Source information
A member of the RNA family "pemK RNA", 64 nucleotides long. It is one of the family's seed sequences. Rfam classes the family as a cis-regulatory element.
[Rfam]
RNA sequence: AUAAUGAGACUUCCGUCGAGAGACGGCUCGGUGAGAACCACGGAGGGGCAGGAACGACCCAUGG
Numbered sequence: 001a002u003a004a005u006g007a008g009a010c011u012u013c014c015g016u017c018g019a020g021a022g023a024c025g026g027c028u029c030g031g032u033g034a035g036a037a038c039c040a041c042g043g044a045g046g047g048g049c050a051g052g053a054a055c056g057a058c059c060c061a062u063g064g
Stems, first nucleotide, its partner, number of pairs: 012061001013026004027045003031041003046060003